[Rfam]
RNA sequence: GCUCUGUGAUUAUGCAUUUGAAGGCUUGUUUCUCAAAACAUUUGCAGUGGCCGCCUAAAUCUUUCGCUUUCGCCGGGCUUGAGAGAUAAUGCUGCCUUUAUCCUUCCUUGGAUGUCUGAGAUU
Numbered sequence: 001g002c003u004c005u006g007u008g009a010u011u012a013u014g015c016a017u018u019u020g021a022a023g024g025c026u027u028g029u030u031u032c033u034c035a036a037a038a039c040a041u042u043u044g045c046a047g048u049g050g051c052c053g054c055c056u057a058a059a060u061c062u063u064u065c066g067c068u069u070u071c072g073c074c075g076g077g078c079u080u081g082a083g084a085g086a087u088a089a090u091g092c093u094g095c096c097u098u099u100a101u102c103c104u105u106c107c108u109u110g111g112a113u114g115u116c117u118g119a120g121a122u123u
Stems, first nucleotide, its partner, number of pairs: 001123001003121002060086006
Notes: Shown here is a 123-nucleotide sequence from Nicotiana tabacum, a member of the family "Small nucleolar RNA SNORD14". The family has 18 seed sequences and 4,559 matches in Rfam 15.1. Its family is annotated with nucleolus and RNA processing in the Gene Ontology. The family's consensus secondary structure was predicted with PFOLD. By type it is a C/D-box small nucleolar RNA. U14 small nucleolar RNA (U14 snoRNA) is required for early cleavages of eukaryotic precursor rRNAs. In yeasts, this molecule possess a stem-loop region (known as the Y-domain) which is essential for function. A similar structure, but with a different consensus sequence, is found in plants, but is absent in vertebrates. On this family, see Samarsky et al., Nucleic Acids Res 1996: "An essential domain in Saccharomyces cerevisiae U14 snoRNA is absent in vertebrates, but conserved in other yeasts".